Notes: Glycine riboswitch aptamer: a 98-nucleotide RNA sequence from Paenibacillus uliginis. The match comes from Rfam's covariance-model search (67 bits).
RNA sequence: AUGAAGGUAUUGGGAGAGAUUACCGACUAACGGGUAACGCCGAAGGAGUAAACCGAAACAACGGUGAAUCUCUCAGGCAAAAGGACUUUUACUGGACG
Numbered sequence: 001a002u003g004a005a006g007g008u009a010u011u012g013g014g015a016g017a018g019a020u021u022a023c024c025g026a027c028u029a030a031c032g033g034g035u036a037a038c039g040c041c042g043a044a045g046g047a048g049u050a051a052a053c054c055g056a057a058a059c060a061a062c063g064g065u066g067a068a069u070c071u072c073u074c075a076g077g078c079a080a081a082a083g084g085a086c087u088u089u090u091a092c093u094g095g096a097c098g
Stems, first nucleotide, its partner, number of pairs: 006093004012087002020037004039078003042074002046072003052065002
The base pairs follow the family's consensus structure. Rfam links the family to the GO term glycine biosynthetic process.